[Rfam]
RNA sequence: CAGCAUCCUUAGAAAACCCCUCAGUGGCUUCUGUGGCUUCUGGGACAAGAAAGGGUGCAAGAUCAAACUUAGAACCAUCCAAAGCUGAGAGCAGAGUCACUGUAGCUCUUUGCUAUUUCACCUCUAAGACAGAA
Numbered sequence: 001c002a003g004c005a006u007c008c009u010u011a012g013a014a015a016a017c018c019c020c021u022c023a024g025u026g027g028c029u030u031c032u033g034u035g036g037c038u039u040c041u042g043g044g045a046c047a048a049g050a051a052a053g054g055g056u057g058c059a060a061g062a063u064c065a066a067a068c069u070u071a072g073a074a075c076c077a078u079c080c081a082a083a084g085c086u087g088a089g090a091g092c093a094g095a096g097u098c099a100c101u102g103u104a105g106c107u108c109u110u111u112g113c114u115a116u117u118u119c120a121c122c123u124c125u126a127a128g129a130c131a132g133a134a
Stems, first nucleotide, its partner, number of pairs: 003058004009050002020044005026038003063133002068128006083114003087110003091106002097102001
RNA: Small nucleolar RNA SNORA14
Organism: Poecilia reticulata